[Rfam]
RNA sequence: GAUAACAUGGUUAUGAAAAAUCGUAUAUCUCCUUAUAAAUGGCAAGGAAGUUUCUACCCUAGAGCCUUAAUCUAGGACUACGAAAAUUAUAUAUUUUAGU
Numbered sequence: 001g002a003u004a005a006c007a008u009g010g011u012u013a014u015g016a017a018a019a020a021u022c023g024u025a026u027a028u029c030u031c032c033u034u035a036u037a038a039a040u041g042g043c044a045a046g047g048a049a050g051u052u053u054c055u056a057c058c059c060u061a062g063a064g065c066c067u068u069a070a071u072c073u074a075g076g077a078c079u080a081c082g083a084a085a086a087u088u089a090u091a092u093a094u095u096u097u098a099g100u
Base pairs, nucleotide, nucleotide: 021083022082023081024080025079030048031047032046033045034044058076059075060074061073062072063071
RNA: Purine riboswitch aptamer